Description: Group II catalytic intron D1-D4-3: a 174-nucleotide RNA from Peptoclostridium acidaminophilum. A search with the family's covariance model found it, with a score of 153 bits.
RNA sequence: UCCAUCGCGAGGUGGAAUCUGAAGGAAGCCGGAGGCAAAGUCCCGAACCGACGAACAGAAACCGCAUAUUAAGGCCGACAUAGGGCGGACGAGUUUGCAAACCAAAACAAAGUCCAAUGCUACCCGAACCCUACACGGUAAAUGCGGCGGUUACAUGGGAUGAAGGUUAUCAUU
Numbered sequence: 001u002c003c004a005u006c007g008c009g010a011g012g013u014g015g016a017a018u019c020u021g022a023a024g025g026a027a028g029c030c031g032g033a034g035g036c037a038a039a040g041u042c043c044c045g046a047a048c049c050g051a052c053g054a055a056c057a058g059a060a061a062c063c064g065c066a067u068a069u070u071a072a073g074g075c076c077g078a079c080a081u082a083g084g085g086c087g088g089a090c091g092a093g094u095u096u097g098c099a100a101a102c103c104a105a106a107a108c109a110a111a112g113u114c115c116a117a118u119g120c121u122a123c124c125c126g127a128a129c130c131c132u133a134c135a136c137g138g139u140a141a142a143u144g145c146g147g148c149g150g151u152u153a154c155a156u157g158g159g160a161u162g163a164a165g166g167u168u169a170u171c172a173u174u
Stems, first nucleotide, its partner, number of pairs: 001016006028174001031171002035167002040161006046152005062147006074139003081133005087115004093108004

Pairs were carried over by alignment from the consensus structure.
The organism belongs to Peptoclostridium acidaminophilum, within Bacteria.